The record is a 75-nucleotide RNA sequence from Ciona savignyi, which matches "mir-200 microRNA precursor family" in Rfam.
NCBI's taxonomy places the organism under Eukaryota, Bilateria, Deuterostomia, Tunicata, Ciona.
The family's consensus secondary structure was predicted with RNAalifold.
Gene Ontology terms of the family: RISC complex and miRNA-mediated post-transcriptional gene silencing.

RNA sequence: GGUCACUGAAGCAUCAACCCGGUAGUACGAUAUGUGAGCUGUAUAAUACUGCCUGGUAAUGAUGAUUCAGUGGCG
Numbered sequence: 001g002g003u004c005a006c007u008g009a010a011g012c013a014u015c016a017a018c019c020c021g022g023u024a025g026u027a028c029g030a031u032a033u034g035u036g037a038g039c040u041g042u043a044u045a046a047u048a049c050u051g052c053c054u055g056g057u058a059a060u061g062a063u064g065a066u067u068c069a070g071u072g073g074c075g
Base pairs, nucleotide, nucleotide: 005071006070007069008068009067010066012064013063014062015061016060017057018056019055022052023051024050025049026048027047032042033041034040